[Rfam]
RNA sequence: ACAACACUUGGGCCGUCGAUCUAUCGAGCAAUAUCACCCGCUUGGUGGAAGGUCUUCUCUCCGUCGU
Number, nucleotide and partner (000 for none) at each position: 001a000002c000003a000004a064005c063006a000007c000008u000009u000010g058011g057012g056013c000014c000015g053016u052017c051018g000019a000020u049021c048022u047023a046024u045025c044026g043027a042028g041029c040030a000031a000032u000033a000034u000035c000036a000037c000038c000039c000040g029041c028042u027043u026044g025045g024046u023047g022048g021049a020050a000051g017052g016053u015054c000055u000056u012057c011058u010059c000060u000061c000062c000063g005064u004065c000066g000067u000